[Rfam]
This 79-nucleotide sequence belongs to the Rfam family "Peptidase-S11 RNA". Pairs were carried over by alignment from the consensus structure, which is taken from published work. The family's RNA type in Rfam is cis-regulatory element.
RNA sequence: GCUAUGAUUCCUCUGCUAGCCGGAGCCAUCCUGACUUCGGCGGUGCGUGUCAUCACGCGUGAAUCAUUUUCUGAAAUCU
Numbered sequence: 001g002c003u004a005u006g007a008u009u010c011c012u013c014u015g016c017u018a019g020c021c022g023g024a025g026c027c028a029u030c031c032u033g034a035c036u037u038c039g040g041c042g043g044u045g046c047g048u049g050u051c052a053u054c055a056c057g058c059g060u061g062a063a064u065c066a067u068u069u070u071c072u073g074a075a076a077u078c079u
Base pairs, nucleotide, nucleotide: 015044016043017042019041020040021039022038023037024036025035027033045058046057047056048055049054